The family of this 88-nucleotide RNA from Neoaquamicrobium microcysteis is "Glycine riboswitch aptamer".
The pairing is the family consensus, mapped onto this sequence.
Lineage of the source: Bacteria > Pseudomonadati > Pseudomonadota > Hyphomicrobiales > Neoaquamicrobium.
RNA sequence: AAUUGACGCGCGGGAGAGAGCCGGGGGACCGGCCGCCGAAGGAGCAACCGCCCCGGAAACUCUCAGGCACCCGGACCGCCCGUCGAUC
Number, nucleotide and partner (000 for none) at each position: 001a000002a000003u000004u000005g000006a083007c082008g081009c000010g079011c078012g077013g076014g000015a000016g000017a000018g000019a000020g033021c032022c031023g030024g000025g000026g000027g000028a000029c000030c023031g022032g021033c020034c000035g068036c067037c066038g064039a063040a000041g000042g062043a061044g060045c000046a000047a000048c056049c055050g000051c000052c000053c000054c000055g049056g048057a000058a000059a000060c044061u043062c042063u039064c038065a000066g037067g036068c035069a000070c000071c000072c000073g000074g000075a000076c013077c012078g011079c010080c000081c008082g007083u006084c000085g000086a000087u000088c000